The record is a 108-nucleotide sequence from Citricoccus sp. SGAir0253, which matches "Glycine riboswitch aptamer" in Rfam. Taxonomically the source falls in Citricoccus (Bacteria, Bacillati, Actinomycetes, Micrococcales). The match comes from Rfam's covariance-model search (34 bits). Rfam's curators write: This family represents the bacterial glycine riboswitch. Glycine riboswitches usually consist of two metabolite-binding aptamers domains with similar structures in tandem. The aptamers cooperatively bind glycine to regulate the expression of downstream genes. In Bacillus subtilis, this riboswitch is found upstream of the gcvT operon which controls glycine degradation.
RNA sequence: GGCGUCUCUGAAAAGUGCCCGGCUCCCUUUGCCACGGCCACCGACGGUGCAAGCCCGCAUCCUCCAGAUGCGGGCGGAAUCUCUCAGGUUCAUGACAGAGCGGGGAGG
Number, nucleotide and partner (000 for none) at each position: 001g000002g000003c103004g000005u000006c100007u099008c098009u097010g096011a000012a000013a000014a000015g000016u000017g038018c037019c036020c000021g000022g000023c000024u000025c000026c000027c000028u000029u000030u000031g000032c000033c000034a000035c000036g019037g018038c017039c000040a089041c088042c087043g085044a084045c000046g000047g083048u000049g081050c000051a000052a000053g000054c076055c000056c000057g000058c000059a000060u000061c000062c000063u000064c000065c000066a000067g000068a000069u000070g000071c000072g000073g000074g000075c000076g054077g000078a000079a000080u000081c049082u000083c047084u044085c043086a000087g042088g041089u040090u000091c000092a000093u000094g000095a000096c010097a009098g008099a007100g006101c000102g000103g003104g000105g000106a000107g000108g000